[Rfam]
RNA sequence: UUUUAGCCCCGAUAGAAGCGGCAUACUUUUUUGCUUGCUAACUCUAUCUUAUUAUAAAUCUAAUGUCUGGCAAAAAAGAUAGAGCGGAAAGCGGGACGGGUU
Numbered sequence: 001u002u003u004u005a006g007c008c009c010c011g012a013u014a015g016a017a018g019c020g021g022c023a024u025a026c027u028u029u030u031u032u033g034c035u036u037g038c039u040a041a042c043u044c045u046a047u048c049u050u051a052u053u054a055u056a057a058a059u060c061u062a063a064u065g066u067c068u069g070g071c072a073a074a075a076a077a078g079a080u081a082g083a084g085c086g087g088a089a090a091g092c093g094g095g096a097c098g099g100g101u102u
Stems, first nucleotide, its partner, number of pairs: 009094003013090001018085002023080002029075007